[Rfam]
Description:
Rfam assigns this 108-nucleotide RNA from Flavobacteria bacterium BBFL7 to the family "SAM riboswitch aptamer (S box leader)". Taxonomically the source falls in Flavobacteriia (Bacteria, Pseudomonadati, Bacteroidota).
RNA sequence: AAAUUAUCAAGAAAGGACGAGGGAACAGACCCAUCGACUCCUUAGCAACCCUUAACGCUCGUUAAGAAGGUGCUACAUUCUGCCCAUUUAAUUGGGAUGAGAUGAUAC
Numbered sequence: 001a002a003a004u005u006a007u008c009a010a011g012a013a014a015g016g017a018c019g020a021g022g023g024a025a026c027a028g029a030c031c032c033a034u035c036g037a038c039u040c041c042u043u044a045g046c047a048a049c050c051c052u053u054a055a056c057g058c059u060c061g062u063u064a065a066g067a068a069g070g071u072g073c074u075a076c077a078u079u080c081u082g083c084c085c086a087u088u089u090a091a092u093u094g095g096g097a098u099g100a101g102a103u104g105a106u107a108c
Stems, first nucleotide, its partner, number of pairs: 003106006013043005021032003026082004044074004049070002051066004078100001083096004
Rfam's curators put it in the seed alignment. The family's consensus secondary structure is taken from published work.